Rfam assigns this 143-nucleotide RNA from Trifolium medium to the family "Small nucleolar RNA snoR136". The family's consensus secondary structure was predicted with mfold. Gene Ontology terms of the family: nucleolus and RNA processing. The match comes from Rfam's covariance-model search (99 bits). It is annotated as an H/ACA-box small nucleolar RNA.

RNA sequence: GUGGCUUCAAAUCUUGAAUUUAUUAAUGCUUACAUAUUUUUGUAAUGUGUUUGCCAUGUUUUAUUGAAGCCUAUAAUUGUGUUCCCCUCGCUAUCCACUACAGCAAUUUUAAUGCUGUAAUUGGACGUUGGGGAACAAAAUUU
Numbered sequence: 001g002u003g004g005c006u007u008c009a010a011a012u013c014u015u016g017a018a019u020u021u022a023u024u025a026a027u028g029c030u031u032a033c034a035u036a037u038u039u040u041u042g043u044a045a046u047g048u049g050u051u052u053g054c055c056a057u058g059u060u061u062u063a064u065u066g067a068a069g070c071c072u073a074u075a076a077u078u079g080u081g082u083u084c085c086c087c088u089c090g091c092u093a094u095c096c097a098c099u100a101c102a103g104c105a106a107u108u109u110u111a112a113u114g115c116u117g118u119a120a121u122u123g124g125a126c127g128u129u130g131g132g133g134a135a136c137a138a139a140a141u142u143u
Stems, first nucleotide, its partner, number of pairs: 001074002003071003008066002015063002018060001026057003030053001032051001034050003081136007089127002094125004103115003